[Rfam]
Shown here is an 86-nucleotide sequence from Capsicum annuum, a member of the family "MIR8024 microRNA precursor family". The organism belongs to Capsicum, within Eukaryota. It scores 65 bits against the family's covariance model. Rfam 15.1 lists 661 matches to the family in 8 species.
RNA sequence: UUGAUGGAUUUGGAGACUUCAGCUUGUAAACUUGGCAGAUUUGGAAACUUCAGCUUGCAAACUUAGCGGAUUUGGAGACUUCAGCU
Numbered sequence: 001u002u003g004a005u006g007g008a009u010u011u012g013g014a015g016a017c018u019u020c021a022g023c024u025u026g027u028a029a030a031c032u033u034g035g036c037a038g039a040u041u042u043g044g045a046a047a048c049u050u051c052a053g054c055u056u057g058c059a060a061a062c063u064u065a066g067c068g069g070a071u072u073u074g075g076a077g078a079c080u081u082c083a084g085c086u
Stems, first nucleotide, its partner, number of pairs: 001084004006079001009076006017068001019066001021064001025059004032053004
Dot-bracket structure: ((((.(..((((((..(.(.(...((((...((((..............))))..))))....).).)..))))))..).))))..